[Rfam]
RNA sequence: GCAAAAUGAUGAAUCUUUUUCUUAGCUUUUUUUCUGGCAUCUCUAAUGUCAGGACGGGCGUUUAAGUACCUCCGUUCGAUGAAUACAACUUAUGACAAUUAUCUGACA
Numbered sequence: 001g002c003a004a005a006a007u008g009a010u011g012a013a014u015c016u017u018u019u020u021c022u023u024a025g026c027u028u029u030u031u032u033u034c035u036g037g038c039a040u041c042u043c044u045a046a047u048g049u050c051a052g053g054a055c056g057g058g059c060g061u062u063u064a065a066g067u068a069c070c071u072c073c074g075u076u077c078g079a080u081g082a083a084u085a086c087a088a089c090u091u092a093u094g095a096c097a098a099u100u101a102u103c104u105g106a107c108a
Stems, first nucleotide, its partner, number of pairs: 053076004
RNA: Small nucleolar RNA snR48